RNA sequence: UUGCAAGUUCAAGGCUACAGUAGAAGUGCUUAUGGCACAGCUCUGCCAGAUUCCAGUAAGUCUGUGAUUUUUGCU
Numbered sequence: 001u002u003g004c005a006a007g008u009u010c011a012a013g014g015c016u017a018c019a020g021u022a023g024a025a026g027u028g029c030u031u032a033u034g035g036c037a038c039a040g041c042u043c044u045g046c047c048a049g050a051u052u053c054c055a056g057u058a059a060g061u062c063u064g065u066g067a068u069u070u071u072u073g074c075u
Stems, first nucleotide, its partner, number of pairs: 013042004019075007026038003047064006
RNA: Mammalian CPEB3 ribozyme
Organism: Alligator sinensis